[Rfam]
RNA sequence: GGAGAGGUGGCCGAGUGGUUGAAGGCAACGGUCUUGAAAACCGUCGUGCCCGCAAGGGUACCGCAGGUUCGAAUCCUGUCCUCUCCG
Numbered sequence: 001g002g003a004g005a006g007g008u009g010g011c012c013g014a015g016u017g018g019u020u021g022a023a024g025g026c027a028a029c030g031g032u033c034u035u036g037a038a039a040a041c042c043g044u045c046g047u048g049c050c051c052g053c054a055a056g057g058g059u060a061c062c063g064c065a066g067g068u069u070c071g072a073a074u075c076c077u078g079u080c081c082u083c084u085c086c087g
Stems, first nucleotide, its partner, number of pairs: 001086007010026003028044005063079005